[Rfam]
RNA sequence: CCUGUUAAGGAUGCAAAUUUGGUAUGUUAUAUAAUUGGAGGUCUCUCGGCUAAUUUUGAUCCUUUGGUUGCUUCUCUUACAACACGUUUGGAGCCUAUCUCUUUAGAAGAUUUGUAUGCUCAUUUGCUCAUAUUUGAGC
Numbered sequence: 001c002c003u004g005u006u007a008a009g010g011a012u013g014c015a016a017a018u019u020u021g022g023u024a025u026g027u028u029a030u031a032u033a034a035u036u037g038g039a040g041g042u043c044u045c046u047c048g049g050c051u052a053a054u055u056u057u058g059a060u061c062c063u064u065u066g067g068u069u070g071c072u073u074c075u076c077u078u079a080c081a082a083c084a085c086g087u088u089u090g091g092a093g094c095c096u097a098u099c100u101c102u103u104u105a106g107a108a109g110a111u112u113u114g115u116a117u118g119c120u121c122a123u124u125u126g127c128u129c130a131u132a133u134u135u136g137a138g139c
Stems, first nucleotide, its partner, number of pairs: 005137004088108002092104002

Source information:
The family of this 139-nucleotide RNA sequence from Carpinus fangiana is "Small nucleolar RNA Z247". It scores 46 bits against the family's covariance model.